The family of this 96-nucleotide sequence from Tetracentron sinense is "Plastid-rps12 3UTR RNA".
Rfam 15.1 lists 1,710 matches to the family in 1,426 species.

[Rfam]
RNA sequence: GGUUUUCAUUGGUACAAAUCCAAUCACCUCAAUUUGAGAUGAGAAGUAGUUAUCCAUUGGUAGCAAAUGGUUAUCUACUAAGCGGGGAAAUAUAGU
Numbered sequence: 001g002g003u004u005u006u007c008a009u010u011g012g013u014a015c016a017a018a019u020c021c022a023a024u025c026a027c028c029u030c031a032a033u034u035u036g037a038g039a040u041g042a043g044a045a046g047u048a049g050u051u052a053u054c055c056a057u058u059g060g061u062a063g064c065a066a067a068u069g070g071u072u073a074u075c076u077a078c079u080a081a082g083c084g085g086g087g088a089a090a091u092a093u094a095g096u
Stems, first nucleotide, its partner, number of pairs: 009023004053086003057077001059075006
Rfam describes the family as follows. Plastid rpl20 is a non-coding RNA (ncRNA) recognised in plastids. It was found in the three prime untranslated region (3UTR) of rps12 gene, its 3UTR location sugest a role in transcript maduration. On this family, see Richter et al., Plant Commun 2023: "Retrograde signaling in plants: A critical review focusing on the GUN pathway and beyond". The match comes from Rfam's covariance-model search (95 bits). Pairs were carried over by alignment from the consensus structure, which was predicted with LocARNA. By type it is a cis-regulatory element.